[Rfam]
Rfam assigns this 184-nucleotide sequence to the family "malK-I RNA". Rfam's curators put it in the seed alignment. Rfam classes the family as a cis-regulatory element.

RNA sequence: UUCCACGGCGCCGGCCACUCCACAACCAUGGCCGGCUGACCGUGAAAAAAGGAGGAGAAGGACAGGGCCCGGGGCUCGGGCUGCGGCAGUGUGGAGACCUGUCGCAAGGCGGCGCAGUCAAAUGAGGCUGGCCGUGAGCACACAGCAAGCGGAGGCUCUGUGUGCGGAGCCGGAAAACAUGGCA
Numbered sequence: 001u002u003c004c005a006c007g008g009c010g011c012c013g014g015c016c017a018c019u020c021c022a023c024a025a026c027c028a029u030g031g032c033c034g035g036c037u038g039a040c041c042g043u044g045a046a047a048a049a050a051g052g053a054g055g056a057g058a059a060g061g062a063c064a065g066g067g068c069c070c071g072g073g074g075c076u077c078g079g080g081c082u083g084c085g086g087c088a089g090u091g092u093g094g095a096g097a098c099c100u101g102u103c104g105c106a107a108g109g110c111g112g113c114g115c116a117g118u119c120a121a122a123u124g125a126g127g128c129u130g131g132c133c134g135u136g137a138g139c140a141c142a143c144a145g146c147a148a149g150c151g152g153a154g155g156c157u158c159u160g161u162g163u164g165c166g167g168a169g170c171c172g173g174a175a176a177a178c179a180u181g182g183c184a
Stems, first nucleotide, its partner, number of pairs: 007040001009038001010036008067081004073171005082106008091098002109135005115130003138165008148157003
Dot-bracket structure: ......(.(((((((((...........)))))))).).)..........................[[[[..(((((]]]]((((((((.((....))))))))))..(((((.(((..........))))))))..((((((((..(((....))))))))))).))))).............